[Rfam]
RNA sequence: GGCAAAUGCACUCUGUGUCACAAUGAUUUUAAACCACAUGUGAUGACAAUUUGUUAGUUUGCUAUAUCAAAGGGUUGCGUCUUAUCCAUGUGAUCAAUUCCCAUUCAGGGCGAUUACAUUGAAAACGCAUUUUACAUAC
Numbered sequence: 001g002g003c004a005a006a007u008g009c010a011c012u013c014u015g016u017g018u019c020a021c022a023a024u025g026a027u028u029u030u031a032a033a034c035c036a037c038a039u040g041u042g043a044u045g046a047c048a049a050u051u052u053g054u055u056a057g058u059u060u061g062c063u064a065u066a067u068c069a070a071a072g073g074g075u076u077g078c079g080u081c082u083u084a085u086c087c088a089u090g091u092g093a094u095c096a097a098u099u100c101c102c103a104u105u106c107a108g109g110g111c112g113a114u115u116a117c118a119u120u121g122a123a124a125a126c127g128c129a130u131u132u133u134a135c136a137u138a139c
Stems, first nucleotide, its partner, number of pairs: 002062006010054002014048003017044006025037001069137001070133003074130002078127002085122002088119008098109001
Small nucleolar RNA psi18S-841/snoR66: a 139-nucleotide sequence from Drosophila rhopaloa. The base pairs follow the family's consensus structure, which was predicted with RNAfold. The family has 24 seed sequences and 108 matches in Rfam 15.1. Lineage of the source: Eukaryota > Insecta > Drosophilinae > Drosophilini > Sophophora. Rfam describes the family as follows. psi18S-841 is a member of the H/ACA class of snoRNA. This family is responsible for guiding the modification of uridine 841 in Drosophila 18S rRNA to pseudouridine. Its family is annotated with nucleolus and RNA processing in the Gene Ontology.